[Rfam]
RNA: Small nucleolar RNA SNORA31
RNA sequence: UUGCAUCCACUGAUAGACCUGAAGCAGACUUCUUUGGCUUCUGGGUUUGCAUAGAGAUGCUAAACUGAGCCUUCCUCGCGCUUUCUGUAUGCUUCAUUUUUAUAGCAGCACAGAUUGAAUAGAGGAAUACAUUU
Numbered sequence: 001u002u003g004c005a006u007c008c009a010c011u012g013a014u015a016g017a018c019c020u021g022a023a024g025c026a027g028a029c030u031u032c033u034u035u036g037g038c039u040u041c042u043g044g045g046u047u048u049g050c051a052u053a054g055a056g057a058u059g060c061u062a063a064a065c066u067g068a069g070c071c072u073u074c075c076u077c078g079c080g081c082u083u084u085c086u087g088u089a090u091g092c093u094u095c096a097u098u099u100u101u102a103u104a105g106c107a108g109c110a111c112a113g114a115u116u117g118a119a120u121a122g123a124g125g126a127a128u129a130c131a132u133u134u
Stems, first nucleotide, its partner, number of pairs: 003060005011051002014049006022040004027035002073126005081117001084114004090107004